[Rfam]
Description: L31-Actinobacteria ribosomal protein leader: a 48-nucleotide RNA from Nocardia testacea. The family's RNA type in Rfam is cis-regulatory leader. For this family Rfam cites "Discovery of 20 novel ribosomal leader candidates in bacteria and archaea" (Eckert and Weinberg, BMC Microbiol, 2020). Pairs were carried over by alignment from the consensus structure, which is taken from published work. NCBI's taxonomy places the organism under Bacteria, Mycobacteriales, Nocardiaceae, Nocardia, Nocardia testacea.
RNA sequence: UCGGUUCCGGUUCACGUUCGGCGCAAAGGCCCGAGCGACCCGGCGACC
Numbered sequence: 001u002c003g004g005u006u007c008c009g010g011u012u013c014a015c016g017u018u019c020g021g022c023g024c025a026a027a028g029g030c031c032c033g034a035g036c037g038a039c040c041c042g043g044c045g046a047c048c
Stems, first nucleotide, its partner, number of pairs: 003048003007043004015037007023030001